Shown here is a 67-nucleotide RNA sequence from Azotobacter chroococcum, a member of the family "int-alpA RNA". The organism belongs to Azotobacter chroococcum, within Bacteria. Rfam 15.1 lists 577 matches to the family in 491 species. The base pairs follow the family's consensus structure, which is taken from published work. About the family: Acidobacteria (1 example), Planctomycetes (1 example), Proteobacteria.
[Rfam]
RNA sequence: GGCCAGCCUAGCCCGACGGGGCGAAAAGCGGAUCACUCAACCGCUUGGCUGGUCGCCUUUUUGAGUC
Numbered sequence: 001g002g003c004c005a006g007c008c009u010a011g012c013c014c015g016a017c018g019g020g021g022c023g024a025a026a027a028g029c030g031g032a033u034c035a036c037u038c039a040a041c042c043g044c045u046u047g048g049c050u051g052g053u054c055g056c057c058u059u060u061u062u063g064a065g066u067c
Stems, first nucleotide, its partner, number of pairs: 001054008011022004028044004040066001